[Rfam]
RNA sequence: GGCGAUAAACGCACCUGUAAUAGACGGCUCGGACCCGGGGGCGGUACCCGGCGGCUCCACCAAAUCACCCGGUCAUUGCGGGGGCUUGGGGCCGAAACAGGAUCGACGGACGUUCAAAGAGGCCAGCUUUCGCUCGGUGAGGUACCACCGUUAUCGGUCCAUGAUCACAGUUGCCAAUGACAACCGUGCUCCGGUGGCGCUGGCUGCGUAA
Numbered sequence: 001g002g003c004g005a006u007a008a009a010c011g012c013a014c015c016u017g018u019a020a021u022a023g024a025c026g027g028c029u030c031g032g033a034c035c036c037g038g039g040g041g042c043g044g045u046a047c048c049c050g051g052c053g054g055c056u057c058c059a060c061c062a063a064a065u066c067a068c069c070c071g072g073u074c075a076u077u078g079c080g081g082g083g084g085c086u087u088g089g090g091g092c093c094g095a096a097a098c099a100g101g102a103u104c105g106a107c108g109g110a111c112g113u114u115c116a117a118a119g120a121g122g123c124c125a126g127c128u129u130u131c132g133c134u135c136g137g138u139g140a141g142g143u144a145c146c147a148c149c150g151u152u153a154u155c156g157g158u159c160c161a162u163g164a165u166c167a168c169a170g171u172u173g174c175c176a177a178u179g180a181c182a183a184c185c186g187u188g189c190u191c192c193g194g195u196g197g198c199g200c201u202g203g204c205u206g207c208g209u210a211a
Stems, first nucleotide, its partner, number of pairs: 001134005014122003025112002029109003035051005052094007135150004
Shown here is a 211-nucleotide RNA sequence from Fuscibacter oryzae, a member of the family "permuted transfer-messenger RNA".
Pairs were carried over by alignment from the consensus structure, which is taken from published work.
It is annotated as a non-coding RNA gene.
NCBI's taxonomy places the organism under Bacteria, Pseudomonadati, Alphaproteobacteria, Rhodobacterales, Fuscibacter.
A search with the family's covariance model found it, with a score of 140 bits.